Shown here is an 83-nucleotide RNA from Peribacillus muralis, a member of the family "c-di-GMP-I riboswitch aptamer". The family's consensus secondary structure is taken from published work. Rfam's curators write: GEMM was predicted in a large-scale screen for bacterial structured RNA regulatory elements. The family is grouped with related families in Rfam's "c-di-GMP_I riboswitch clan".
RNA sequence: UCUUGAGAAAGGCAAACCUAUUGAAAAGUAGGGACGCAAAAUUACAGGUCUAAGGCUAAUGCUAAGAUGGCUGUGUUGCCACA
Numbered sequence: 001u002c003u004u005g006a007g008a009a010a011g012g013c014a015a016a017c018c019u020a021u022u023g024a025a026a027a028g029u030a031g032g033g034a035c036g037c038a039a040a041a042u043u044a045c046a047g048g049u050c051u052a053a054g055g056c057u058a059a060u061g062c063u064a065a066g067a068u069g070g071c072u073g074u075g076u077u078g079c080c081a082c083a
Base pairs, nucleotide, nucleotide: 012037013036017032018031019030020029021028022027040077041076042075045073046072047071048068049067050066055062056061

About this RNA: A search with the family's covariance model found it, with a score of 73 bits. Taxonomically the source falls in Peribacillus (Bacteria, Bacillati, Bacillota, Bacillaceae).